Notes
The record is a 104-nucleotide RNA from Jiella endophytica, which matches "Guanidine-I riboswitch aptamer" in Rfam. The base pairs follow the family's consensus structure. From the family's description: This family represents a conserved RNA structure found upstream of the ykkC and yxkD genes in Bacillus subtilis and related genes in other bacteria. The literature on the family includes a 2004 paper in Proc Natl Acad Sci U S A by Barrick et al., "New RNA motifs suggest an expanded scope for riboswitches in bacterial genetic control".
RNA sequence: GUGCGGUGCGUCUAGGGUUCCGGUGCCUCUUUGGCAUGGCUGGUCCGAGAGACGCACUCCCCGUGAAUUGCGGGGAGACACGGCGGGCCAAAAUCCCGGGAGAA
Numbered sequence: 001g002u003g004c005g006g007u008g009c010g011u012c013u014a015g016g017g018u019u020c021c022g023g024u025g026c027c028u029c030u031u032u033g034g035c036a037u038g039g040c041u042g043g044u045c046c047g048a049g050a051g052a053c054g055c056a057c058u059c060c061c062c063g064u065g066a067a068u069u070g071c072g073g074g075g076a077g078a079c080a081c082g083g084c085g086g087g088c089c090a091a092a093a094u095c096c097c098g099g100g101a102g103a104a
Stems, first nucleotide, its partner, number of pairs: 007056006015046002020043002022040001023037005057077008079099001081102001085097003